[Rfam]
RNA sequence: AGAUGUCAGGGUCAAAAGGUCUGAAACCACGUGUGCUUGCACACUGGUGGUAGAAUGACCUUGAGACCCGCCCCGAUAUGAGCAUAAAAGUGGGGCGUAAGCACCAUGAUAUGCGAAUAGCGGGUAGGAUUGUGGGAGUGCGUAGCACGAAACAAUCCGUUGGCAUCA
Number, nucleotide and partner (000 for none) at each position: 001a000002g167003a166004u165005g164006u163007c162008a000009g000010g068011g067012u066013c065014a000015a000016a062017a061018g060019g059020u058021c057022u000023g000024a000025a000026a051027c050028c049029a048030c047031g044032u043033g042034u041035g040036c000037u000038u000039g000040c035041a034042c033043a032044c031045u000046g000047g030048u029049g028050g027051u026052a000053g000054a000055a000056u000057g021058a020059c019060c018061u017062u016063g000064a000065g013066a012067c011068c010069c000070g000071c000072c124073c123074c122075g121076a000077u119078a118079u117080g000081a000082g114083c113084a112085u111086a000087a000088a000089a000090g000091u000092g000093g105094g104095g102096c101097g000098u000099a000100a000101g096102c095103a000104c094105c093106a000107u000108g000109a000110u000111a085112u084113g083114c082115g000116a000117a079118u078119a077120g000121c075122g074123g073124g072125u000126a000127g158128g157129a156130u155131u154132g153133u152134g000135g000136g000137a000138g148139u147140g146141c145142g000143u000144a000145g141146c140147a139148c138149g000150a000151a000152a133153c132154a131155a130156u129157c128158c127159g000160u000161u000162g007163g006164c005165a004166u003167c002168a000
Rfam assigns this 168-nucleotide RNA sequence from [Ruminococcus] lactaris to the family "Clostridiales-1 RNA". It is annotated as a small RNA.